[Rfam]
The family of this 199-nucleotide RNA from Polynucleobacter necessarius is "carA ncRNA motif". The literature on the family includes a 2021 paper in RNA Biol by Brewer et al., "Comprehensive discovery of novel structured noncoding RNAs in 26 bacterial genomes". About the family: carA ncRNA motif was reported as a Strong Riboswitch Candidate CarA ncRNA motif was located upstream of carA gene which codes for the small subunit of carbamoyl phosphate synthase, which is an enzyme that catalyses the first committed step in pyrimidine and arginine biosynthesis. The sequence is in the family's curated seed alignment.

RNA sequence: GGGGGCUUAUUACCUUCUAAGCCCAAUUGGCUGGGAAUCCAAGGGUUUAUACGCAAAACUGGUAUCAUUACUAGGUUCAAAACUUAAUAAAUUACCCUAGCGCUUAAAGACACUCACCUCCCGCACAAACAGUCCUGGGUUGGUCUUUUUGGGGUGUUGAGCGUCGGAUGGAGCAGGGACUGGAGAUGGUUUGUCACCC
Numbered sequence: 001g002g003g004g005g006c007u008u009a010u011u012a013c014c015u016u017c018u019a020a021g022c023c024c025a026a027u028u029g030g031c032u033g034g035g036a037a038u039c040c041a042a043g044g045g046u047u048u049a050u051a052c053g054c055a056a057a058a059c060u061g062g063u064a065u066c067a068u069u070a071c072u073a074g075g076u077u078c079a080a081a082a083c084u085u086a087a088u089a090a091a092u093u094a095c096c097c098u099a100g101c102g103c104u105u106a107a108a109g110a111c112a113c114u115c116a117c118c119u120c121c122c123g124c125a126c127a128a129a130c131a132g133u134c135c136u137g138g139g140u141u142g143g144u145c146u147u148u149u150u151g152g153g154g155u156g157u158u159g160a161g162c163g164u165c166g167g168a169u170g171g172a173g174c175a176g177g178g179a180c181u182g183g184a185g186a187u188g189g190u191u192u193g194u195c196a197c198c199c
Stems, first nucleotide, its partner, number of pairs: 016036003020032004037046003059074006095178004102174004109165003113161004120154003126151004134143002